[Rfam]
RNA sequence: GCGUUGUGAUGAAAAAAGUUAAUUUCUAUCCGACUAAAUACAUGAAUGGAUUAAAUAACCUCCUACUCAUUCUGA
Number, nucleotide and partner (000 for none) at each position: 001g000002c000003g000004u000005u000006g070007u069008g068009a067010u000011g000012a000013a000014a000015a000016a000017a000018g000019u000020u000021a000022a000023u000024u000025u000026c000027u049028a000029u000030c044031c000032g000033a000034c000035u000036a000037a000038a000039u000040a000041c000042a000043u000044g030045a000046a000047u000048g000049g027050a000051u000052u000053a000054a000055a000056u000057a000058a000059c000060c000061u000062c000063c000064u000065a000066c000067u009068c008069a007070u006071u000072c000073u000074g000075a000
Small nucleolar RNA Z105: a 75-nucleotide RNA from Papaver somniferum. It is annotated as a C/D-box small nucleolar RNA. Rfam 15.1 lists 621 matches to the family in 204 species. The literature on the family includes a 2003 paper in Nucleic Acids Res by Chen et al., "The high diversity of snoRNAs in plants: identification and comparative study of 120 snoRNA genes from Oryza sativa". The organism belongs to Papaver, within Eukaryota.